mir-16 microRNA precursor family: an 84-nucleotide RNA from Protopolystoma xenopodis.
A search with the family's covariance model found it, with a score of 41 bits.
The organism belongs to Protopolystoma, within Eukaryota.
Rfam 15.1 lists 4,705 matches to the family in 758 species.
Its family is annotated with RISC complex and miRNA-mediated post-transcriptional gene silencing in the Gene Ontology.
On this family, see Calin et al., Proc Natl Acad Sci U S A 2002: "Frequent deletions and down-regulation of micro- RNA genes miR15 and miR16 at 13q14 in chronic lymphocytic leukemia".
Nucleotides: 084
Stems, first nucleotide, its partner, number of pairs: 001084003005080003010077001011074008022063011
Number, partner (000 for none) and nucleotide at each position: 001084a002083c003082u004000u005080u006079g007078u008000u009000u010077u011074c012073g013072c014071a015070g016069c017068u018067c019000g020000g021000u022063c023062a024061u025060a026059u027058u028057g029056g030055u031054a032053g033000a034000u035000g036000c037000a038000u039000u040000c041000c042000u043000c044000u045000a046000a047000g048000u049000c050000u051000u052000c053032c054031u055030a056029c057028c058027a059026a060025u061024a062023u063022g064000a065000c066000c067018g068017a069016g070015u071014u072013g073012c074011g075000a076000a077010a078007a079006c080005a081000a082003g083002g084001u